[Rfam]
RNA sequence: GAGUUGUCGUCAGUGGCGAGGCUAAGCCGGAUAGGCGGAGCCGAAGCGAAAGCGAGUCUGAAAGGGCGUUAAGUCGCUGGCGGCAGACCCGAAGCGGGACGAGCUACCCAUGGCCAGGGUGAAGGCGGGGUAACACCCGCUGGAGGCCCGAACCGGUGGAGGGUGAAAACUCCUCGGAUGAGCUGUGGGUAGGAGUGAAAAGCUAAUCGAGUCCCGUGAUAGCUGGUU
Dot-bracket structure: ....(((((((((((((..((((..(((.....)))..))))...((....))..((((....)))).....)))))))))))))..((.(...((((((...((((((((((((.((((...((((((......))))))....))))...(((..((((........)))).)))..).))))))))))).(((.....)))......))))))......).))..
A member of the RNA family "Bacterial large subunit ribosomal RNA" from Thermodesulfatator indicus, 228 nucleotides of a longer RNA. Rfam's curators put it in the seed alignment. The organism belongs to Thermodesulfatator indicus, within Bacteria. Rfam 15.1 lists 51,934 matches to the family in 10,816 species.